[Rfam]
RNA sequence: AAUCAGCCACUUUGCGUUAUAUAUUGGGGCAAAUGAGGUGUUAUACUGCUCGUAUAUUGAAUUUACUUGGGAUCUUCAGAUUUGCUGAGAAAGAGAUUUCCUUGAAGCUGGUCUAGUAAGCCCCAAGUACAUU
Numbered sequence: 001a002a003u004c005a006g007c008c009a010c011u012u013u014g015c016g017u018u019a020u021a022u023a024u025u026g027g028g029g030c031a032a033a034u035g036a037g038g039u040g041u042u043a044u045a046c047u048g049c050u051c052g053u054a055u056a057u058u059g060a061a062u063u064u065a066c067u068u069g070g071g072a073u074c075u076u077c078a079g080a081u082u083u084g085c086u087g088a089g090a091a092a093g094a095g096a097u098u099u100c101c102u103u104g105a106a107g108c109u110g111g112u113c114u115a116g117u118a119a120g121c122c123c124c125a126a127g128u129a130c131a132u133u
Stems, first nucleotide, its partner, number of pairs: 002042001004040002007038002011033005017027001066127003071121001073119001078114005084108003089100003
This 133-nucleotide sequence from Tripterygium wilfordii belongs to the Rfam family "Small nucleolar RNA snoR77".
The literature on the family includes a 2002 paper in Curr Biol by Marker et al., "Experimental RNomics: identification of 140 candidates for small non-messenger RNAs in the plant Arabidopsis thaliana".
Pairs were carried over by alignment from the consensus structure, which was predicted with WAR.
Lineage of the source: Eukaryota > Streptophyta > Pentapetalae > Celastraceae > Tripterygium.
Its family is annotated with nucleolus and RNA processing in the Gene Ontology.
The match comes from Rfam's covariance-model search (89 bits).